[Rfam]
Record summary:
Singlet oxygen resistance RNA X: a 69-nucleotide sequence from Roseivivax sediminis. The literature on the family includes a 2016 paper in RNA Biol by Peng et al., "Regulation of a polyamine transporter by the conserved 3' UTR-derived sRNA SorX confers resistance to singlet oxygen and organic hydroperoxides in Rhodobacter sphaeroides". The match comes from Rfam's covariance-model search (49 bits). The family has 8 seed sequences and 528 matches in Rfam 15.1. Rfam's curators write: SorX (RSs2461)like SorY is a singlet oxygen induced sRNA that counteracts oxidative stress by targeting mRNA for a transporter in Rhodobacter. It also has an impact on resistance against organic hydroperoxides. The source organism's lineage runs through Bacteria, Pseudomonadati, Pseudomonadota, Alphaproteobacteria and Roseivivax.

RNA sequence: CGCCCUUCGGGGCAGCAUGUUCAUACCUCCCUGUUGGACUUCGGCCGAGCUUUGUGCUCGGCCUUUUUU
Numbered sequence: 001c002g003c004c005c006u007u008c009g010g011g012g013c014a015g016c017a018u019g020u021u022c023a024u025a026c027c028u029c030c031c032u033g034u035u036g037g038a039c040u041u042c043g044g045c046c047g048a049g050c051u052u053u054g055u056g057c058u059c060g061g062c063c064u065u066u067u068u069u
Stems, first nucleotide, its partner, number of pairs: 002022001004019001006017001043063008